Shown here is a 132-nucleotide RNA sequence from Phocoena sinus, a member of the family "Small nucleolar RNA SNORA20". The base pairs follow the family's consensus structure, which was predicted with ILM. The family's RNA type in Rfam is H/ACA-box small nucleolar RNA. It scores 128 bits against the family's covariance model. About the family: ACA20 is a member of the H/ACA class of snoRNA that guide the sites of modification of uridines to pseudouridines. Rfam links the family to the GO terms nucleolus and RNA processing.

Nucleotides: 132
Base pairs, nucleotide, nucleotide: 003060004059005058006057007056008055015047016046017045018044019043020042024039025038027037028036071126072125073124074123075122076121077120078119080118081117083115088111089110090109091108092107093106094105095104096103097102
Number, partner (000 for none) and nucleotide at each position: 001000c002000u003060u004059c005058c006057c007056a008055u009000u010000u011000a012000u013000u014000u015047g016046c017045u018044g019043c020042u021000a022000u023000a024039u025038a026000g027037u028036c029000u030000u031000u032000c033000a034000g035000u036028g037027a038025u039024a040000u041000a042020a043019g044018c045017a046016g047015u048000u049000a050000u051000a052000c053000g054000c055008a056007u057006g058005g059004g060003a061000u062000a063000a064000a065000a066000u067000a068000a069000u070000g071126u072125u073124g074123g075122g076121c077120c078119a079000u080118u081117g082000u083115a084000a085000a086000u087000u088111g089110a090109g091108g092107u093106g094105a095104a096103g097102u098000a099000a100000c101000c102097a103096u104095u105094u106093c107092a108091u109090c110089u111088c112000u113000u114000c115083u116000c117081c118080a119078u120077g121076g122075u123074c124073u125072a126071g127000a128000c129000a130000u131000u132000g